Rfam assigns this 166-nucleotide sequence from Streptomyces sp. ERV7 to the family "c-di-AMP riboswitch aptamer (ydaO/yuaA leader)". The base pairs follow the family's consensus structure. The organism belongs to Streptomyces, within Bacteria.
RNA sequence: UCGGAAUCCGCACCCAUCCACGCGUGGCAGGAGCGGGGGACCCAGGUAAGCGCCGUCCGGAAUUCCGGCACGGCUCGGGGUGAAGCCGGAGCACCGCACGCGGUGCCCGGCCGGGCAGCUCCAGCCCGAACCCGACAGCUCACCUCGCAGGCGCCGGAGAGGAAUC
Numbered sequence: 001u002c003g004g005a006a007u008c009c010g011c012a013c014c015c016a017u018c019c020a021c022g023c024g025u026g027g028c029a030g031g032a033g034c035g036g037g038g039g040a041c042c043c044a045g046g047u048a049a050g051c052g053c054c055g056u057c058c059g060g061a062a063u064u065c066c067g068g069c070a071c072g073g074c075u076c077g078g079g080g081u082g083a084a085g086c087c088g089g090a091g092c093a094c095c096g097c098a099c100g101c102g103g104u105g106c107c108c109g110g111c112c113g114g115g116c117a118g119c120u121c122c123a124g125c126c127c128g129a130a131c132c133c134g135a136c137a138g139c140u141c142a143c144c145u146c147g148c149a150g151g152c153g154c155c156g157g158a159g160a161g162g163a164a165u166c
Stems, first nucleotide, its partner, number of pairs: 007032003033148006043077001078133003086110004113127004